[Rfam]
RNA sequence: ACAACAUAAAGGCCGAAGCUCUUAAUGAAGCACGGGGAACCCAUGUAUUUGGAUUUGGGGUGAAGCCGAUCUUUCCGCGGCGGGGCAUUCUCUUUUCGUCCUAACCCGACAGCUAACCUCGCAGGCCAAUUCGAAGGGAGAA
Dot-bracket structure: ..........((((...(((........))).(((((....((............))(((.....(((.........)))..((((...........))))...))).........)))))..))))...............

The family of this 142-nucleotide RNA from Paenibacillus swuensis is "c-di-AMP riboswitch aptamer (ydaO/yuaA leader)".
Rfam links the family to the GO terms regulation of gene expression and cyclic-di-AMP binding.
The pairing is the family consensus, mapped onto this sequence.
It scores 88 bits against the family's covariance model.
The source organism's lineage runs through Bacteria, Bacillati, Bacilli, Paenibacillaceae and Paenibacillus.